[Rfam]
RNA sequence: UUUUGAUUGGACGAUGACUAACAUAUGUCAUGUUUUAAUUGACUAAUGACAACAACAAUGCAUUCCAUCGUUUAUAGAGUCGACAUUCAAUCAGAACAUGAAACGUGAUAGUCAUUGUCU
Dot-bracket structure: ...................(.((..(..(((.((((.(((((............................................))))).)))).)))..)..)).)...........
Background:
Shown here is a 120-nucleotide RNA sequence from Glycine max, a member of the family "MIR1520 microRNA precursor family". Clan: MIR1520 microRNA precursor clan. NCBI's taxonomy places the organism under Eukaryota, Viridiplantae, Streptophytina, Embryophyta, Glycine subgen. Soja. The family has 18 seed sequences and 1,934 matches in Rfam 15.1.